Description: The family of this 374-nucleotide RNA sequence from Chelatococcus asaccharovorans is "Alphaproteobacteria transfer-messenger RNA". The match comes from Rfam's covariance-model search (307 bits).
[Rfam]
RNA sequence: GAUCUUCCCAGCGGCCAUCAAGCCCCCUAUAUUAUUGGUGCCGUCGCAAGACGGCUAUGGCGAUAAACGGCCAUCGCAAUAAGCCUUUCGGACCCGGGGGCGGUACCCGGCGCCUCCACCAAAGGGCAGCGGCGACAGCGUGCAUGCGCGGCGGCUGCCCUUCGGCGGGGGCGAAAUAGGAUCGACGAGGGUGUAAAGGGUGGACUUUUGCUCGGCAUGGUUCCGCCGUUAUCGGGCCGAACAUAUAGUUGCCAACGACAACUAUGCUCCGGUUGCCCAGGCUGCGUAACGCAGUUUAGGUAUCCGAUUCAAAGUCCCGGCGGUUAGCCCCGUCGGGCGGGGUUCGGAGGCACCUGGCAACAGAAGCCUCCACU
Numbered sequence: 001g002a003u004c005u006u007c008c009c010a011g012c013g014g015c016c017a018u019c020a021a022g023c024c025c026c027c028u029a030u031a032u033u034a035u036u037g038g039u040g041c042c043g044u045c046g047c048a049a050g051a052c053g054g055c056u057a058u059g060g061c062g063a064u065a066a067a068c069g070g071c072c073a074u075c076g077c078a079a080u081a082a083g084c085c086u087u088u089c090g091g092a093c094c095c096g097g098g099g100g101c102g103g104u105a106c107c108c109g110g111c112g113c114c115u116c117c118a119c120c121a122a123a124g125g126g127c128a129g130c131g132g133c134g135a136c137a138g139c140g141u142g143c144a145u146g147c148g149c150g151g152c153g154g155c156u157g158c159c160c161u162u163c164g165g166c167g168g169g170g171g172c173g174a175a176a177u178a179g180g181a182u183c184g185a186c187g188a189g190g191g192u193g194u195a196a197a198g199g200g201u202g203g204a205c206u207u208u209u210g211c212u213c214g215g216c217a218u219g220g221u222u223c224c225g226c227c228g229u230u231a232u233c234g235g236g237c238c239g240a241a242c243a244u245a246u247a248g249u250u251g252c253c254a255a256c257g258a259c260a261a262c263u264a265u266g267c268u269c270c271g272g273u274u275g276c277c278c279a280g281g282c283u284g285c286g287u288a289a290c291g292c293a294g295u296u297u298a299g300g301u302a303u304c305c306g307a308u309u310c311a312a313a314g315u316c317c318c319g320g321c322g323g324u325u326a327g328c329c330c331c332g333u334c335g336g337g338c339g340g341g342g343u344u345c346g347g348a349g350g351c352a353c354c355u356g357g358c359a360a361c362a363g364a365a366g367c368c369u370c371c372a373c374u
Base pairs, nucleotide, nucleotide: 040055041054042053043052044051059212060211061210062209063208069205071203072202073201074200075199084191085190086189088188089187090186094110095109096108097107098106111173112172113171114170115169116168117167213228214227215226216225218239219238220237222236223235224234340355341354342353343352346371347370348369349368350367351366